[Rfam]
This 80-nucleotide sequence from Notiomystis cincta belongs to the Rfam family "Small nucleolar RNA SNORD111". The match comes from Rfam's covariance-model search (57 bits). The family has 5 seed sequences and 894 matches in Rfam 15.1. For this family Rfam cites "Purified box C/D snoRNPs are able to reproduce site-specific 2'-O-methylation of target RNA in vitro" (Galardi et al., Mol Cell Biol, 2002). It is annotated as a C/D-box small nucleolar RNA.
RNA sequence: CGGCCUGAAGUGAUGAGUGUGGUUCAUGUCUCUUCUCUGAGAUUUGCGCUGGAGACACUUCAAAGACUCUGAUCAGGCAG
Numbered sequence: 001c002g003g004c005c006u007g008a009a010g011u012g013a014u015g016a017g018u019g020u021g022g023u024u025c026a027u028g029u030c031u032c033u034u035c036u037c038u039g040a041g042a043u044u045u046g047c048g049c050u051g052g053a054g055a056c057a058c059u060u061c062a063a064a065g066a067c068u069c070u071g072a073u074c075a076g077g078c079a080g
Stems, first nucleotide, its partner, number of pairs: 001080001003078003